[Rfam]
RNA: Bacterial small signal recognition particle RNA
RNA sequence: AACCCCCCGUGCGGCGGUACCUCACUGAACUCCCCCAGGGCCGGAAGGCAGCAAGGGCAGGUGGGCUCUGCCGGGUGCACGGGGGGCCUUU
Numbered sequence: 001a002a003c004c005c006c007c008c009g010u011g012c013g014g015c016g017g018u019a020c021c022u023c024a025c026u027g028a029a030c031u032c033c034c035c036c037a038g039g040g041c042c043g044g045a046a047g048g049c050a051g052c053a054a055g056g057g058c059a060g061g062u063g064g065g066c067u068c069u070g071c072c073g074g075g076u077g078c079a080c081g082g083g084g085g086g087c088c089u090u091u
Stems, first nucleotide, its partner, number of pairs: 001090002005086001006083006012075001015073005021065006032057003040049003